A member of the RNA family "Glycine riboswitch aptamer" from Pseudoxanthomonas spadix, 116 nucleotides long. It scores 60 bits against the family's covariance model.
RNA sequence: AGCACACACUCUGGAGAGACCGGUCGGCCCGCAUGGGUCGGCACCGGCGCCGAAGGGGCACGAAGCGGCAGUCGGCGCGCUUCCAAACUCUCAGGCAAAAGGACAGAGGGGCGCGA
Numbered sequence: 001a002g003c004a005c006a007c008a009c010u011c012u013g014g015a016g017a018g019a020c021c022g023g024u025c026g027g028c029c030c031g032c033a034u035g036g037g038u039c040g041g042c043a044c045c046g047g048c049g050c051c052g053a054a055g056g057g058g059c060a061c062g063a064a065g066c067g068g069c070a071g072u073c074g075g076c077g078c079g080c081u082u083c084c085a086a087a088c089u090c091u092c093a094g095g096c097a098a099a100a101g102g103a104c105a106g107a108g109g110g111g112c113g114c115g116a
Stems, first nucleotide, its partner, number of pairs: 007110001009108005020047004049096003052092002056090003062083006